mir-2807 microRNA precursor family: an 84-nucleotide RNA from Bombyx mori. Pairs were carried over by alignment from the consensus structure, which was predicted with RNAalifold. For this family Rfam cites "Novel microRNAs in silkworm (Bombyx mori)" (Cai et al., Funct Integr Genomics, 2010). Gene Ontology terms of the family: miRNA-mediated post-transcriptional gene silencing and RISC complex.

RNA sequence: CGAAAAAAAAACUAUAUGGAGUUGGAACGUUUGCCUACGUAUGCCGCUAGGGGCGCUCUUCCAACUGCAUACAAAUUUGAACUU
Dot-bracket structure: .......(((..(.((.(.((((((((.(....(((..((.....))..)))....).)))))))).).)).)..)))......